[Rfam]
RNA sequence: UCUAGUUAGAUAAAAAGCACUCAUAUAUGCCUAUAAUAUGGUUAGGCGUCUCUACGAGUCCCCGGAAAGGACUCACUAUGGGUGAAGGCAUAAACACG
Numbered sequence: 001u002c003u004a005g006u007u008a009g010a011u012a013a014a015a016a017g018c019a020c021u022c023a024u025a026u027a028u029g030c031c032u033a034u035a036a037u038a039u040g041g042u043u044a045g046g047c048g049u050c051u052c053u054a055c056g057a058g059u060c061c062c063c064g065g066a067a068a069g070g071a072c073u074c075a076c077u078a079u080g081g082g083u084g085a086a087g088g089c090a091u092a093a094a095c096a097c098g
Stems, first nucleotide, its partner, number of pairs: 018084008030046004056074006
This 98-nucleotide RNA sequence from Propionigenium maris belongs to the Rfam family "Purine riboswitch aptamer". The base pairs follow the family's consensus structure, which is taken from published work. The organism belongs to Propionigenium maris, within Bacteria.